[Rfam]
RNA sequence: AUCGUUCAUCCUCUUAAAGAGGACGCAAGUAAGCCGACUCGGAACGGAAU
Numbered sequence: 001a002u003c004g005u006u007c008a009u010c011c012u013c014u015u016a017a018a019g020a021g022g023a024c025g026c027a028a029g030u031a032a033g034c035c036g037a038c039u040c041g042g043a044a045c046g047g048a049a050u
Stems, first nucleotide, its partner, number of pairs: 003046005009023005026047001032039002
RNA: Glutamine riboswitch aptamer (glnA leader)